[Rfam]
RNA sequence: GCCCGGGUAGUUUAAAGGUAAAACCUUAAUUUCAUACGUUAAAGAUGAGAAUUCGAUUUUCUCCCCAGGUU
Numbered sequence: 001g002c003c004c005g006g007g008u009a010g011u012u013u014a015a016a017g018g019u020a021a022a023a024c025c026u027u028a029a030u031u032u033c034a035u036a037c038g039u040u041a042a043a044g045a046u047g048a049g050a051a052u053u054c055g056a057u058u059u060u061c062u063c064c065c066c067a068g069g070u071u
Stems, first nucleotide, its partner, number of pairs: 001070003005066003010024004026042005047063005

This 71-nucleotide RNA from Podospora anserina belongs to the Rfam family "tRNA".
Rfam's curators put it in the seed alignment.
The family's consensus secondary structure is taken from published work.
Gene Ontology term of the family: triplet codon-amino acid adaptor activity.
Transfer RNA (tRNA) molecules are approximately 80 nucleotides in length.
By type it is a transfer RNA.
The source organism's lineage runs through Eukaryota, Pezizomycotina, sordariomyceta, Sordariales and Podospora.